Source information
Shown here is a 190-nucleotide sequence from Trichodesmium erythraeum, a member of the family "Ribosomal protein L10 leader". It is annotated as a cis-regulatory leader. The literature on the family includes a 2008 paper in Biochemistry by Iben and Draper, "Specific interactions of the L10(L12)4 ribosomal protein complex with mRNA, rRNA, and L11". The organism belongs to Trichodesmium erythraeum, within Bacteria.
RNA sequence: AAAUUUCAAAUUCAAGAGCUAAAGACAGCAGGUGCUAAUAGCUUAAUUUUCUGCCGAGGUUCAAGAAUUAAUUAUUCAAAGAUAACAAUAGGGAGUUUUAUUAAAGACCCUAAUUUAAUUGCUUGAUUUGGAUUUGAUAAUUCUUAGCCCUGGCAGAUAGCUAAAUCUGCUAGGGUUUUUGAUUUGGGUA
Numbered sequence: 001a002a003a004u005u006u007c008a009a010a011u012u013c014a015a016g017a018g019c020u021a022a023a024g025a026c027a028g029c030a031g032g033u034g035c036u037a038a039u040a041g042c043u044u045a046a047u048u049u050u051c052u053g054c055c056g057a058g059g060u061u062c063a064a065g066a067a068u069u070a071a072u073u074a075u076u077c078a079a080a081g082a083u084a085a086c087a088a089u090a091g092g093g094a095g096u097u098u099u100a101u102u103a104a105a106g107a108c109c110c111u112a113a114u115u116u117a118a119u120u121g122c123u124u125g126a127u128u129u130g131g132a133u134u135u136g137a138u139a140a141u142u143c144u145u146a147g148c149c150c151u152g153g154c155a156g157a158u159a160g161c162u163a164a165a166u167c168u169g170c171u172a173g174g175g176u177u178u179u180u181g182a183u184u185u186g187g188g189u190a
Stems, first nucleotide, its partner, number of pairs: 028054005034042003148175010